Rfam assigns this 76-nucleotide sequence from Scophthalmus maximus to the family "Small nucleolar RNA SNORD83".
RNA sequence: GCCACAUGAUGAGUGUGUAGCUGCAGUAGCCUUCGGGCUGUGAUGACCUGCUAUCUAUCACCCUACUCUGAUGGCU
Numbered sequence: 001g002c003c004a005c006a007u008g009a010u011g012a013g014u015g016u017g018u019a020g021c022u023g024c025a026g027u028a029g030c031c032u033u034c035g036g037g038c039u040g041u042g043a044u045g046a047c048c049u050g051c052u053a054u055c056u057a058u059c060a061c062c063c064u065a066c067u068c069u070g071a072u073g074g075c076u
Base pairs, nucleotide, nucleotide: 001075002074003073004072029038030037031036

It is annotated as a C/D-box small nucleolar RNA.
The literature on the family includes a 2000 paper in Nucleic Acids Res by Jady and Kiss, "Characterisation of the U83 and U84 small nucleolar RNAs: two novel 2'-O-ribose methylation guide RNAs that lack complementarities to ribosomal RNAs".
Taxonomically the source falls in Scophthalmus (Eukaryota, Actinopterygii, Actinopteri, Teleostei).
The match comes from Rfam's covariance-model search (41 bits).